[Rfam]
Record summary: A member of the RNA family "mir-9/mir-79 microRNA precursor family" from Steinernema carpocapsae, 67 nucleotides long. Gene Ontology terms of the family: RISC complex and miRNA-mediated post-transcriptional gene silencing. The literature on the family includes a 2001 paper in Science by Lagos-Quintana et al., "Identification of novel genes coding for small expressed RNAs".
RNA sequence: AUUUUUAAGUUUUUGGACAGUUAGCUAUAUGCUUAGCAUAUAGCUAACUGUCCAAAAACUUAAAAAU
Dot-bracket structure: (((((.((((((((((((((((((((.(((((...))))).)))))))))))))))))))).)))))